[Rfam]
RNA sequence: ACCCACAGCUACUGGUCUGGAACUGUUCUGAAAUGUAACAGUUGCAGUAUUCCAUCUGUGGGAAAUAAACUGUUACUGUAUCAUGUCCUUUUUGGGUCAGCUGAAAAGGACUUUCUCUGUAACAGACAAGA
Numbered sequence: 001a002c003c004c005a006c007a008g009c010u011a012c013u014g015g016u017c018u019g020g021a022a023c024u025g026u027u028c029u030g031a032a033a034u035g036u037a038a039c040a041g042u043u044g045c046a047g048u049a050u051u052c053c054a055u056c057u058g059u060g061g062g063a064a065a066u067a068a069a070c071u072g073u074u075a076c077u078g079u080a081u082c083a084u085g086u087c088c089u090u091u092u093u094g095g096g097u098c099a100g101c102u103g104a105a106a107a108g109g110a111c112u113u114u115c116u117c118u119g120u121a122a123c124a125g126a127c128a129a130g131a
Base pairs, nucleotide, nucleotide: 003061004060005059006058017047018046019045021043022042023041024040025039075120076119078117085111086110087109088108089107090106091105092104093103
Source information:
The record is a 131-nucleotide RNA from Pelodiscus sinensis, which matches "Small nucleolar RNA SNORA41" in Rfam. For this family Rfam cites "RNomics: an experimental approach that identifies 201 candidates for novel, small, non-messenger RNAs in mouse" (Huttenhofer et al., EMBO J, 2001). About the family: ACA41 is a member of the H/ACA class of snoRNA that guide the sites of modification of uridines to pseudouridines. The base pairs follow the family's consensus structure, which was predicted with PFOLD. Rfam classes the family as an H/ACA-box small nucleolar RNA.